RNA sequence: UAGAAUGAUAGAGGAGCAAUGAUUAUUAGUACUUCUAAGGAGCUAGGUCUGAGUGUAGAAUUAGGAGGAAAGGGAUUAUUGCCGAAGCCCUAAAAGCAAUUGCUAUCUCUUAGGGUUGGGGAUAUAAUUAAUAGUUAUAUUACUGCCACUUUGUGGAGAGCUAUCUUACGA
Numbered sequence: 001u002a003g004a005a006u007g008a009u010a011g012a013g014g015a016g017c018a019a020u021g022a023u024u025a026u027u028a029g030u031a032c033u034u035c036u037a038a039g040g041a042g043c044u045a046g047g048u049c050u051g052a053g054u055g056u057a058g059a060a061u062u063a064g065g066a067g068g069a070a071a072g073g074g075a076u077u078a079u080u081g082c083c084g085a086a087g088c089c090c091u092a093a094a095a096g097c098a099a100u101u102g103c104u105a106u107c108u109c110u111u112a113g114g115g116u117u118g119g120g121g122a123u124a125u126a127a128u129u130a131a132u133a134g135u136u137a138u139a140u141u142a143c144u145g146c147c148a149c150u151u152u153g154u155g156g157a158g159a160g161c162u163a164u165c166u167u168a169c170g171a
Stems, first nucleotide, its partner, number of pairs: 007165005016082009032067007086117008095108002118144002121141008146156004

The record is a 171-nucleotide RNA from Halobacteroides halobius, which matches "Lysine riboswitch aptamer" in Rfam. The match comes from Rfam's covariance-model search (110 bits). NCBI's taxonomy places the organism under Bacteria, Bacillati, Halanaerobiales, Halobacteroidaceae, Halobacteroides halobius.